[Rfam]
RNA sequence: UGUUUGUCUGCGGGAGAGUGCCGGUAACGGCCACCGAAGGGGAAAUCGCCCGAAAUCUCUCAGGUACCAAGAACCGCAGAAAAGCA
Numbered sequence: 001u002g003u004u005u006g007u008c009u010g011c012g013g014g015a016g017a018g019u020g021c022c023g024g025u026a027a028c029g030g031c032c033a034c035c036g037a038a039g040g041g042g043a044a045a046u047c048g049c050c051c052g053a054a055a056u057c058u059c060u061c062a063g064g065u066a067c068c069a070a071g072a073a074c075c076g077c078a079g080a081a082a083a084g085c086a
Base pairs, nucleotide, nucleotide: 007080008079009078010077011076012075013074020031021030022029023028033065034064035063036061037060040059041058042057046053047052
The family of this 86-nucleotide sequence from Pseudochrobactrum saccharolyticum is "Glycine riboswitch aptamer". The base pairs follow the family's consensus structure. A search with the family's covariance model found it, with a score of 62 bits. Rfam links the family to the GO term glycine biosynthetic process. Taxonomically the source falls in Pseudochrobactrum (Bacteria, Pseudomonadati, Alphaproteobacteria, Hyphomicrobiales).